[Rfam]
This 600-nucleotide part of an RNA from Alloprevotella tannerae belongs to the Rfam family "Bacterial large subunit ribosomal RNA". The source organism's lineage runs through Bacteria, Pseudomonadati, Bacteroidota, Alloprevotella and Alloprevotella tannerae. Pairs were carried over by alignment from the consensus structure, which is taken from published work. Its family is annotated with ribosome and structural constituent of ribosome in the Gene Ontology. Rfam's curators put it in the seed alignment.
RNA sequence: UAGUAUCGGUGAAGAUGCCGAUUACCCGCGAUGGGACGAAAAGACCCCGUGAACCUUUACUGCAACUUAACGUUGUGACCGGGCAUCGGAUGUGUAGGAUAGGCCGGAGGCUGUGAAGAGGUUACGCCAGUAAUCUUGGAGCCAUUGUUGAAAUACGGCCCUUUCGAUGUUUGGUCCCUAACUCGCAAAUGCGAGGACCGCGUUUGGCGGGCAGUUUGACUGGGGUGGUCGCCUCCAAAAGCGUAACGGAGGCUUCCCAAGGUACCCUCAGGCCGAUUGGUAACCGGCCGUUGAAUGCAAUGGCAUAAGGGUGCUUGACUGCGAGGCCGACAAGCCGAUCAGGUAGGAAACUAGGGCAUAGUGAUCCGGUGGUUCCGUAUGGAAGGGCCAUCGCUCAAAGGAUAAAAGGUACUCCGGGGAUAACAGGCUGAUCCCUCCCAAGAGCUCAUAUCGACGGAGUGGUUUGGCACCUCGAUGUCGGCUCGUCACAUCCUGGGGCUGGAGAAGGUCCCAAGGGUUGGGCUGUUCGCCCAUUAAAGUGGCACGCGAGCUGGGUUCAGAACGUCGUGAGACAGUUCGGUCUCUAUCUAUCGUGGGCGC
Dot-bracket structure: ....(((((........)))))..((((((((.(((.((......((((.(((((((.((((...((.((((..(.((((((((((((((.(.........(((((..(((......((((((((....))))))))...)))............)))))).)))))))))))))).)...(((((....))))).....)))).))....))))..((((.....))))((((((...........))))))(.((....((((((((.(((((.........)))))...)).(......).....))))))....(((...(((......)))...))).(((....))).))..........(((((((.((........))))))))).....)......)))))..))))))........(((.(((.((((...((.......))...)))).))..))))..........(((((((((((..((.((((((......))))))...)).(((((.....))))).....)))))..)..)))).).....(((((((....))).))))....))..)))))))))))...